This 92-nucleotide sequence from Orthohepacivirus hominis belongs to the Rfam family "Hepatitis C virus stem-loop SL8670". Rfam classes the family as a cis-regulatory element. The organism belongs to Hepatitis C virus genotype 1, within Viruses. Pairs were carried over by alignment from the consensus structure, which was predicted with RNAfold.
RNA sequence: AAAGCGCGGGAACCCAGGAGGACGCGGCGAGCCUACGAGUCUUCACGGAGGCUAUGACUAGGUACUCCGCCCCCCCCGGGGACCCGCCCCAA
Numbered sequence: 001a002a003a004g005c006g007c008g009g010g011a012a013c014c015c016a017g018g019a020g021g022a023c024g025c026g027g028c029g030a031g032c033c034u035a036c037g038a039g040u041c042u043u044c045a046c047g048g049a050g051g052c053u054a055u056g057a058c059u060a061g062g063u064a065c066u067c068c069g070c071c072c073c074c075c076c077c078g079g080g081g082a083c084c085c086g087c088c089c090c091a092a
Stems, first nucleotide, its partner, number of pairs: 006087005013080003017076002020073002026071003029067002031063005038053006